ASpks TB sRNA: a 75-nucleotide sequence from Streptomyces zagrosensis. The source organism's lineage runs through Bacteria, Actinomycetota, Kitasatosporales, Streptomycetaceae and Streptomyces. The family's consensus secondary structure is taken from published work.
[Rfam]
RNA sequence: CUUGAUCGAGCCAAGCCACAGCGGCCGGUCCGCGGGGCGCUCGGGUCCGUAGGUGGUCAGCAGCGCAUGCGCCUC
Numbered sequence: 001c002u003u004g005a006u007c008g009a010g011c012c013a014a015g016c017c018a019c020a021g022c023g024g025c026c027g028g029u030c031c032g033c034g035g036g037g038c039g040c041u042c043g044g045g046u047c048c049g050u051a052g053g054u055g056g057u058c059a060g061c062a063g064c065g066c067a068u069g070c071g072c073c074u075c
Base pairs, nucleotide, nucleotide: 015025016024017023031071032070033069038065039064045058047056048055049054